[Rfam]
RNA sequence: AUACUGUGAUGGUUGCAUAGUUCAACAGAUAGGAAUCAUGAAAGAGAAACCAUUUUAUCUGAUGUAUCU
Numbered sequence: 001a002u003a004c005u006g007u008g009a010u011g012g013u014u015g016c017a018u019a020g021u022u023c024a025a026c027a028g029a030u031a032g033g034a035a036u037c038a039u040g041a042a043a044g045a046g047a048a049a050c051c052a053u054u055u056u057a058u059c060u061g062a063u064g065u066a067u068c069u
Stems, first nucleotide, its partner, number of pairs: 001067004006039005013028003044056004
Dot-bracket structure: ((((.(((((..(((..........)))......)))))....((((.....)))).......))))..
RNA: Small nucleolar RNA SNORD77
Organism: Bos taurus